[Rfam]
RNA sequence: CCGCGACGCCUCUUCGGGCGUUUCCUCCCUAGACUUAGGCCGCCUCCUGUGAGGCGGCCUUCUUCUUGCACAUU
Numbered sequence: 001c002c003g004c005g006a007c008g009c010c011u012c013u014u015c016g017g018g019c020g021u022u023u024c025c026u027c028c029c030u031a032g033a034c035u036u037a038g039g040c041c042g043c044c045u046c047c048u049g050u051g052a053g054g055c056g057g058c059c060u061u062c063u064u065c066u067u068g069c070a071c072a073u074u
Stems, first nucleotide, its partner, number of pairs: 008019004038059009
A member of the RNA family "Makes More Granules Regulator RNA (mmgR)" from Skermanella stibiiresistens, 74 nucleotides long. About the family: SuhB later renamed mmgR (makes more granules regulator) was a putative non-coding RNA found multiple times in the Agrobacterium tumefaciens genome and related alpha-proteobacteria. Lineage of the source: Bacteria > Pseudomonadati > Rhodospirillales > Skermanella > Skermanella stibiiresistens. Rfam 15.1 lists 1,791 matches to the family in 918 species.